RNA: Lysine riboswitch aptamer
Organism: Paenibacillus albiflavus
RNA sequence: UAGUGAGGUAGAGGCGCGACAGUUAACAGUACCUAAUGGAGUCCGAGAAGAUGAAGAAGUUAGGUAGAAGGAAGUGUCGCCGAAGUAUGUGGUGAGUUCUCGCCAUCAUAUACUGGGUCUGUAGCGAAUAGUUACAGGACUGUCUUCGUAAACAUACGUGUUUAUGAAGUUGUGCUAUCUCUGUU
Number, nucleotide and partner (000 for none) at each position: 001u000002a000003g000004u000005g000006a180007g179008g178009u177010a176011g175012a000013g000014g000015c000016g080017c079018g078019a077020c076021a075022g000023u073024u072025a000026a000027c000028a000029g000030u000031a065032c064033c063034u062035a061036a060037u059038g000039g000040a000041g000042u000043c000044c000045g000046a000047g000048a000049a000050g000051a000052u000053g000054a000055a000056g000057a000058a000059g037060u036061u035062a034063g033064g032065u031066a000067g000068a000069a000070g000071g000072a024073a023074g000075u021076g020077u019078c018079g017080c016081c000082g000083a000084a114085g113086u112087a111088u110089g109090u108091g107092g106093u105094g104095a000096g000097u000098u000099c000100u000101c000102g000103c000104c094105a093106u092107c091108a090109u089110a088111u087112a086113c085114u084115g141116g140117g000118u138119c137120u136121g135122u134123a133124g132125c131126g000127a000128a000129u000130a000131g125132u124133u123134a122135c121136a120137g119138g118139a000140c116141u115142g000143u000144c169145u168146u167147c166148g165149u164150a163151a162152a161153c000154a000155u000156a000157c000158g000159u000160g000161u152162u151163u150164a149165u148166g147167a146168a145169g144170u000171u000172g000173u000174g000175c011176u010177a009178u008179c007180u006181c000182u000183g000184u000185u000